[Rfam]
The family of this 98-nucleotide RNA sequence from Spinacia oleracea is "Small nucleolar RNA Z162". The match comes from Rfam's covariance-model search (47 bits). The source organism's lineage runs through Eukaryota, Streptophytina, Pentapetalae, Anserineae and Spinacia. On this family, see Chen et al., Nucleic Acids Res 2003: "The high diversity of snoRNAs in plants: identification and comparative study of 120 snoRNA genes from Oryza sativa".
RNA sequence: AUUGGCACUAUGAGGAGUAAAUCGACUCGUUGGAUGAGAUCAAUCGAUCGCUGAAAUUCAUUUUAUCAUUGAAAAGUCCUUUUCAUUCUGAGUGCCUU
Numbered sequence: 001a002u003u004g005g006c007a008c009u010a011u012g013a014g015g016a017g018u019a020a021a022u023c024g025a026c027u028c029g030u031u032g033g034a035u036g037a038g039a040u041c042a043a044u045c046g047a048u049c050g051c052u053g054a055a056a057u058u059c060a061u062u063u064u065a066u067c068a069u070u071g072a073a074a075a076g077u078c079c080u081u082u083u084c085a086u087u088c089u090g091a092g093u094g095c096c097u098u
Stems, first nucleotide, its partner, number of pairs: 004096005010086008